[Rfam]
RNA sequence: UUACAAUUAAAGGAUAUUUCUUGAGACGACACUAACAGAAAUAUCUCUUAAUUGUUUGGG
Numbered sequence: 001u002u003a004c005a006a007u008u009a010a011a012g013g014a015u016a017u018u019u020c021u022u023g024a025g026a027c028g029a030c031a032c033u034a035a036c037a038g039a040a041a042u043a044u045c046u047c048u049u050a051a052u053u054g055u056u057u058g059g060g
Base pairs, nucleotide, nucleotide: 003055004054005053006052007051008050009049010048012046013045014044015043016042017041018040019039020038021037024033025032